A member of the RNA family "Bacterial large subunit ribosomal RNA" from Paenibacillus durus, 252 nucleotides of a longer RNA. NCBI's taxonomy places the organism under Bacteria, Bacillati, Bacilli, Paenibacillaceae, Paenibacillus. The family's consensus secondary structure is taken from published work.
[Rfam]
RNA sequence: GGAAAUUUGAGAGGAGCUGUCCUUAGUACGAGAGGACCGGGAUGGACGUACCGCUGGUGCACCAGUUGUUCCGCCAGGAGCAUGGCUGGGUAGCUACGUACGGACGGGAUAAGCGCUGAAAGCAUCUAAGCGUGAAGCCCCCCUCAAGAUGAGAUUUCCCAGUAUGUAAGACCCCUUGAAGACGACGAGGUAGAUAGGUUGGAGGUGGAAGCACGGCAACGUGUGGAGCUGACCAAUACUAAUCGGUCGAGG
Numbered sequence: 001g002g003a004a005a006u007u008u009g010a011g012a013g014g015a016g017c018u019g020u021c022c023u024u025a026g027u028a029c030g031a032g033a034g035g036a037c038c039g040g041g042a043u044g045g046a047c048g049u050a051c052c053g054c055u056g057g058u059g060c061a062c063c064a065g066u067u068g069u070u071c072c073g074c075c076a077g078g079a080g081c082a083u084g085g086c087u088g089g090g091u092a093g094c095u096a097c098g099u100a101c102g103g104a105c106g107g108g109a110u111a112a113g114c115g116c117u118g119a120a121a122g123c124a125u126c127u128a129a130g131c132g133u134g135a136a137g138c139c140c141c142c143c144u145c146a147a148g149a150u151g152a153g154a155u156u157u158c159c160c161a162g163u164a165u166g167u168a169a170g171a172c173c174c175c176u177u178g179a180a181g182a183c184g185a186c187g188a189g190g191u192a193g194a195u196a197g198g199u200u201g202g203a204g205g206u207g208g209a210a211g212c213a214c215g216g217c218a219a220c221g222u223g224u225g226g227a228g229c230u231g232a233c234c235a236a237u238a239c240u241a242a243u244c245g246g247u248c249g250a251g252g
Base pairs, nucleotide, nucleotide: 001159002158003157004156005155006154007153008152011145012144013143014142017045018044019043020042021041022040023039047102048101049100050099051098055096056095057094062089063088064087065086066085067082068081069080070079071078072077106140107139108138113133114132115131116130117129167250170248171247172246173245174190175189176188177187178186195241196240197239198237199236200235201234202233204230205229211224212223213222214221215220
Dot-bracket structure: ((((((((..((((..(((((((...............))))))).(((((...(((....(((((((((((....))))))..)))))....))).)))))...(((....(((((...........)))))....))).))))......)))))))).......(..(((((((((.......)))))....((((((((.((.....(((((....)))))....))..))))).)))...)))).)..
The match comes from Rfam's covariance-model search (2942 bits).